[Rfam]
RNA sequence: ACGAACCUGUGGGGGGACCAGUGUUUGCUGGUUGAGAUUGUAUCCGUUAGAUACUGACCCUUAGAACCUGAUCUGGUUGAGACCAGCGUAGGGAACAUGGAUAAAGCAAAC
Numbered sequence: 001a002c003g004a005a006c007c008u009g010u011g012g013g014g015g016g017a018c019c020a021g022u023g024u025u026u027g028c029u030g031g032u033u034g035a036g037a038u039u040g041u042a043u044c045c046g047u048u049a050g051a052u053a054c055u056g057a058c059c060c061u062u063a064g065a066a067c068c069u070g071a072u073c074u075g076g077u078u079g080a081g082a083c084c085a086g087c088g089u090a091g092g093g094a095a096c097a098u099g100g101a102u103a104a105a106g107c108a109a110a111c
Base pairs, nucleotide, nucleotide: 006099008097009096010095011061012060013059014058016055017032018031019030020029021028040054041053042052043051067092068091069090070089073086074085075084076083